Rfam assigns this 157-nucleotide RNA sequence from Caulobacter sp. 17J65-9 to the family "caulobacter sRNA CC2171". NCBI's taxonomy places the organism under Bacteria, Pseudomonadota, Caulobacterales, Caulobacteraceae, Caulobacter.
RNA sequence: CAACAGCUGAAAGGAGGUGACCCAGUGUCUCAUUGUCUCAAACGCGGUGCUGAGAUCGUGACCCUGGCCCUCGUUUCCGAGGUCCGCGCGUAAGCAAGGGUUCGAGACCGCAUCGCGGUCGACAAUGGAAAGGCCGCUCCGGCGACGGGGCGGCCUU
Numbered sequence: 001c002a003a004c005a006g007c008u009g010a011a012a013g014g015a016g017g018u019g020a021c022c023c024a025g026u027g028u029c030u031c032a033u034u035g036u037c038u039c040a041a042a043c044g045c046g047g048u049g050c051u052g053a054g055a056u057c058g059u060g061a062c063c064c065u066g067g068c069c070c071u072c073g074u075u076u077c078c079g080a081g082g083u084c085c086g087c088g089c090g091u092a093a094g095c096a097a098g099g100g101u102u103c104g105a106g107a108c109c110g111c112a113u114c115g116c117g118g119u120c121g122a123c124a125a126u127g128g129a130a131a132g133g134c135c136g137c138u139c140c141g142g143c144g145a146c147g148g149g150g151c152g153g154c155c156u157u
Stems, first nucleotide, its partner, number of pairs: 016023002031127007044059002047057001050054001060068001062066001069099003072094001074093002078090002081087001107119005130157012
Description
The family's RNA type in Rfam is small RNA.